[Rfam]
RNA sequence: UUAAUUGAAGCCAAAAAGAGGCGUAUCACUGUUAAUGAUAUAAUUGAGUAUAAACUCCAAUUAAG
Number, nucleotide and partner (000 for none) at each position: 001u064002u063003a062004a061005u060006u059007g058008a000009a000010g022011c021012c020013a000014a000015a000016a000017a000018g000019a000020g012021g011022c010023g000024u040025a039026u038027c037028a036029c000030u000031g000032u000033u000034a000035a000036u028037g027038a026039u025040a024041u000042a000043a000044u000045u000046g057047a056048g055049u054050a000051u000052a000053a000054a049055c048056u047057c046058c007059a006060a005061u004062u003063a002064a001065g000
The record is a 65-nucleotide RNA from Drosophila yakuba, which matches "tRNA" in Rfam. Transfer RNA (tRNA) molecules are approximately 80 nucleotides in length. The sequence is in the family's curated seed alignment.